About this RNA
TPP riboswitch aptamer (THI element): a 99-nucleotide RNA sequence from Affinundibacterium fentianense. It scores 65 bits against the family's covariance model. Lineage of the source: Bacteria > Pseudomonadati > Pseudomonadota > Betaproteobacteria > Affinundibacterium. Vitamin B(1) in its active form thiamin pyrophosphate (TPP) is an essential coenzyme that is synthesised by coupling of pyrimidine and thiazole moieties in bacteria.

RNA sequence: UCGUAAUGCUAGGGGUCCUGAGUGCGAGUCACUCGGGUGAGAAAUACCCUUGAACCUGAUCUGGAUAAUGCCAGCGAAGGGAAGCAGCCAAAGUCGUGA
Dot-bracket structure: ......((((((((.(((((((((.....))))))))......)..))))....(((...((((......))))...)))..)))).............